[Rfam]
Nucleotides: 150
Base pairs, nucleotide, nucleotide: 002149003148004147005146006145007144008143013043016042017041018040022033023032024031027121028120030117044112045111046110047109049108050107051104052103053102054101055100056099057098058097122139123138124137125136126135
Number, partner (000 for none) and nucleotide at each position: 001000c002149u003148c004147u005146u006145a007144u008143c009000c010000c011000g012000a013043g014000u015000u016042g017041g018040u019000g020000g021000a022033g023032g024031g025000g026000a027121c028120a029000g030117g031024c032023c033022c034000u035000u036000u037000g038000a039000a040018a041017c042016c043013c044112g045111g046110c047109a048000a049108c050107c051104u052103g053102c054101c055100g056099u057098c058097g059000g060000a061000a062000c063000c064000a065000u066000g067000u068000a069000a070000g071000c072000g073000c074000c075000a076000g077000a078000a079000c080000g081000g082000a083000g084000c085000u086000u087000c088000a089000c090000a091000u092000g093000u094000g095000a096000a097058u098057g099056a100055u101054g102053g103052c104051g105000a106000u107050g108049g109047u110046g111045c112044u113000a114000a115000c116000c117030u118000g119000g120028u121027g122139c123138a124137a125136g126135g127000u128000a129000u130000a131000u132000a133000a134000c135126c136125c137124u138123u139122g140000a141000a142000c143008g144007a145006u146005a147004a148003g149002a150000a
Description: This 150-nucleotide sequence from Bacillus sp. V5-8f belongs to the Rfam family "SAM riboswitch aptamer (S box leader)". It scores 59 bits against the family's covariance model.